[Rfam]
This 58-nucleotide RNA sequence belongs to the Rfam family "Glutamine-II riboswitch aptamer".
RNA sequence: CAACGUUCAUCCAAUUUAUUUGGACGCAUGACAUGAGAAUAGGGAACGGGAUUCUCAU
Number, nucleotide and partner (000 for none) at each position: 001c000002a000003a000004c048005g047006u046007u045008c044009a000010u024011c023012c022013a021014a020015u000016u000017u000018a000019u000020u014021u013022g012023g011024a010025c000026g000027c000028a000029u000030g000031a000032c000033a058034u057035g056036a055037g054038a053039a052040u051041a000042g000043g000044g008045a007046a006047c005048g004049g000050g000051a040052u039053u038054c037055u036056c035057a034058u033
Gene Ontology term of the family: glutamine binding.